[Rfam]
RNA: MIR1435 microRNA precursor family
Organism: Miscanthus lutarioriparius
RNA sequence: UAGUUUUGUCAUAAGUCAAACUAUCUUAUGUUUGACCAAGUUUAUGGAGAAGAUUGUCAAUAUUUACGACAUCAAUACGAAAAUAUAUUUCAUAAUUGAUCUAAUGAUGCUUAUUUGGUAUUGUAAAUAUUGGCAAAUUUUUUUUGUAUAAACUUGUUCAAACUUAAGAUGGUUUGACUUUGGACAAAGCUAG
Numbered sequence: 001u002a003g004u005u006u007u008g009u010c011a012u013a014a015g016u017c018a019a020a021c022u023a024u025c026u027u028a029u030g031u032u033u034g035a036c037c038a039a040g041u042u043u044a045u046g047g048a049g050a051a052g053a054u055u056g057u058c059a060a061u062a063u064u065u066a067c068g069a070c071a072u073c074a075a076u077a078c079g080a081a082a083a084u085a086u087a088u089u090u091c092a093u094a095a096u097u098g099a100u101c102u103a104a105u106g107a108u109g110c111u112u113a114u115u116u117g118g119u120a121u122u123g124u125a126a127a128u129a130u131u132g133g134c135a136a137a138u139u140u141u142u143u144u145u146g147u148a149u150a151a152a153c154u155u156g157u158u159c160a161a162a163c164u165u166a167a168g169a170u171g172g173u174u175u176g177a178c179u180u181u182g183g184a185c186a187a188a189g190c191u192a193g
Base pairs, nucleotide, nucleotide: 005188006187007186008185009184013180014179015178016177017176018175019174020173021172022171023170024169025168026167031162032161033160034159035158045146046145047143048142049141050140051139052138055135056134057133059131060130061129062128063127064126065125066124067123068122072118073117074116075115